[Rfam]
RNA: Group I catalytic intron
Organism: Cetraspora pellucida
RNA sequence: UUAGGAGCGUAACAUGUGUUGUGGUGUACCAGAUUUUCUGGGAUAGCAAUACCGCUGAGCGGAUCACCUCCUAAUGAAGCAACACUAUCAAAUUGCCGGAAGUCCCUAAAGCCUUUGGUACCGCGGGAGGUGCGAAAGCAGCUUCGCAGCAGCUGGUUGAAAGGCCAGUGGAUGGUAAGAAUCCAAAGGAUUUAAGCUUAAGAUGAUAUGUUAAGUACUGAAAAGCUUUAGCCUCUAUCAUUUAUGCGAUGCACAUUUUGAAUGGAUGAAGGCUUAGCAGUAGGGGCAGCGCUGUACCCCAAUUAUAAACUCCAUUCUCUAUGUGUCCCCUAAAAUGGGGUAUGGGUAAUCGGCAGCCAAACGCUCUGGGCUCACUGCUUUUGCAACCCGUGCGUGCAGUUCACAGACUAAAUGGUAGUGGGUGAGCGAUAUGGGGUAACUUAACAUUAUAUGUAGUAAUAUAUAUAUUAGUUUAAGCUCUAAAACCAUGUCGGUUGCUUAAGAUAUAGUCGACAGACGCCCGAGAGGGUAUC
Numbered sequence: 001u002u003a004g005g006a007g008c009g010u011a012a013c014a015u016g017u018g019u020u021g022u023g024g025u026g027u028a029c030c031a032g033a034u035u036u037u038c039u040g041g042g043a044u045a046g047c048a049a050u051a052c053c054g055c056u057g058a059g060c061g062g063a064u065c066a067c068c069u070c071c072u073a074a075u076g077a078a079g080c081a082a083c084a085c086u087a088u089c090a091a092a093u094u095g096c097c098g099g100a101a102g103u104c105c106c107u108a109a110a111g112c113c114u115u116u117g118g119u120a121c122c123g124c125g126g127g128a129g130g131u132g133c134g135a136a137a138g139c140a141g142c143u144u145c146g147c148a149g150c151a152g153c154u155g156g157u158u159g160a161a162a163g164g165c166c167a168g169u170g171g172a173u174g175g176u177a178a179g180a181a182u183c184c185a186a187a188g189g190a191u192u193u194a195a196g197c198u199u200a201a202g203a204u205g206a207u208a209u210g211u212u213a214a215g216u217a218c219u220g221a222a223a224a225g226c227u228u229u230a231g232c233c234u235c236u237a238u239c240a241u242u243u244a245u246g247c248g249a250u251g252c253a254c255a256u257u258u259u260g261a262a263u264g265g266a267u268g269a270a271g272g273c274u275u276a277g278c279a280g281u282a283g284g285g286g287c288a289g290c291g292c293u294g295u296a297c298c299c300c301a302a303u304u305a306u307a308a309a310c311u312c313c314a315u316u317c318u319c320u321a322u323g324u325g326u327c328c329c330c331u332a333a334a335a336u337g338g339g340g341u342a343u344g345g346g347u348a349a350u351c352g353g354c355a356g357c358c359a360a361a362c363g364c365u366c367u368g369g370g371c372u373c374a375c376u377g378c379u380u381u382u383g384c385a386a387c388c389c390g391u392g393c394g395u396g397c398a399g400u401u402c403a404c405a406g407a408c409u410a411a412a413u414g415g416u417a418g419u420g421g422g423u424g425a426g427c428g429a430u431a432u433g434g435g436g437u438a439a440c441u442u443a444a445c446a447u448u449a450u451a452u453g454u455a456g457u458a459a460u461a462u463a464u465a466u467a468u469u470a471g472u473u474u475a476a477g478c479u480c481u482a483a484a485a486c487c488a489u490g491u492c493g494g495u496u497g498c499u500u501a502a503g504a505u506a507u508a509g510u511c512g513a514c515a516g517a518c519g520c521c522c523g524a525g526a527g528g529g530u531a532u533c
Stems, first nucleotide, its partner, number of pairs: 083420005089414002094355006104346003356400002361395004369388002372385001404512001406511005422498004427493008519530004